[Rfam]
Source information:
This 123-nucleotide RNA sequence from Rarobacter incanus belongs to the Rfam family "FMN riboswitch aptamer (RFN element)".
RNA sequence: CAAGUGCUCUGGGGUCGGUGAAAGUCCGAACCGGCGGUGAAAGCCCGCGACCCGCGCGCCCGCGCGGUUGACUCGGUGGAAUUCCGAGGCCGACGGUGAGAGUCCGGAUGGUAAGAGCGCACG
Numbered sequence: 001c002a003a004g005u006g007c008u009c010u011g012g013g014g015u016c017g018g019u020g021a022a023a024g025u026c027c028g029a030a031c032c033g034g035c036g037g038u039g040a041a042a043g044c045c046c047g048c049g050a051c052c053c054g055c056g057c058g059c060c061c062g063c064g065c066g067g068u069u070g071a072c073u074c075g076g077u078g079g080a081a082u083u084c085c086g087a088g089g090c091c092g093a094c095g096g097u098g099a100g101a102g103u104c105c106g107g108a109u110g111g112u113a114a115g116a117g118c119g120c121a122c123g
Stems, first nucleotide, its partner, number of pairs: 004120007016028003030103002032092002034048004043090002052067002072088005094106003

Record summary:
Rfam links the family to the GO term FMN binding. A search with the family's covariance model found it, with a score of 94 bits.